[Rfam]
RNA sequence: UCAGUACCUCGCUAGGUGAGGCUCCUGCGCGAACACAGGCCACUGAUCCGACGACGUCGAGAGACGCCCAGGGUUAGGACAGAUCCUCCCGGAUUAAGGGUUGAUCCGAAGUGGCUUCCCGGACACGGGAUCACGUCGCGCAGUGCCGAAGCCCGACGAGAGGGGUGCGAG
Numbered sequence: 001u002c003a004g005u006a007c008c009u010c011g012c013u014a015g016g017u018g019a020g021g022c023u024c025c026u027g028c029g030c031g032a033a034c035a036c037a038g039g040c041c042a043c044u045g046a047u048c049c050g051a052c053g054a055c056g057u058c059g060a061g062a063g064a065c066g067c068c069c070a071g072g073g074u075u076a077g078g079a080c081a082g083a084u085c086c087u088c089c090c091g092g093a094u095u096a097a098g099g100g101u102u103g104a105u106c107c108g109a110a111g112u113g114g115c116u117u118c119c120c121g122g123a124c125a126c127g128g129g130a131u132c133a134c135g136u137c138g139c140g141c142a143g144u145g146c147c148g149a150a151g152c153c154c155g156a157c158g159a160g161a162g163g164g165g166u167g168c169g170a171g
Base pairs, nucleotide, nucleotide: 005167006166007165008164009163010162011157013097015153016152017151020147021146022145025143026142027141028140029139030138031137032136039115040114041113042112043111045075046074047073048072049071055066056065057064058063082106083105084104085103088100089099090098117130118129119128
RNA: M-box riboswitch aptamer (ykoK leader)